[Rfam]
Nucleotides: 110
Stems, first nucleotide, its partner, number of pairs: 001110008013041001015040003021031003026080003042073004047069002050065004077102001082099006
Number, partner (000 for none) and nucleotide at each position: 001110c002109g003108c004107u005106c006105a007104u008103c009000c010000a011000g012000a013041g014000c015040g016039g017038u018000g019000g020000a021031g022030g023029g024000a025000a026080c027079g028078g029023c030022c031021c032000g033000a034000c035000g036000a037000a038017g039016c040015c041013c042073g043072g044071c045070a046000a047069c048068c049000a050065g051064c052063g053062c054000a055000g056000g057000c058000c059000a060000c061000u062053g063052c064051g065050c066000c067000a068048g069047g070045u071044g072043c073042c074000a075000a076000u077102g078028c079027c080026g081000g082099c083098g084097g085096a086095g087094c088000g089000a090000g091000a092000g093000c094087g095086c096085u097084c098083c099082g100000c101000a102077c103008g104007a105006u106005g107004a108003g109002c110001g